About this RNA
The family of this 107-nucleotide RNA sequence from Rudaeicoccus suwonensis is "TPP riboswitch aptamer (THI element)". Taxonomically the source falls in Rudaeicoccus (Bacteria, Bacillati, Actinomycetes, Dermacoccaceae). The base pairs follow the family's consensus structure, which is taken from published work. It scores 66 bits against the family's covariance model.

RNA sequence: AUCAACCGACAGGGGAGCGCCUGGUGGCGCUGAGAGUGCGGAUCGACCGCAGACCCUAAGAACCUGCUCCGGCUAGCACCGGCGAAGGGAGUCAUUCAUGGCUACUG
Numbered sequence: 001a002u003c004a005a006c007c008g009a010c011a012g013g014g015g016a017g018c019g020c021c022u023g024g025u026g027g028c029g030c031u032g033a034g035a036g037u038g039c040g041g042a043u044c045g046a047c048c049g050c051a052g053a054c055c056c057u058a059a060g061a062a063c064c065u066g067c068u069c070c071g072g073c074u075a076g077c078a079c080c081g082g083c084g085a086a087g088g089g090a091g092u093c094a095u096u097c098a099u100g101g102c103u104a105c106u107g
Stems, first nucleotide, its partner, number of pairs: 008093003011057004017030005037051005063088003069082004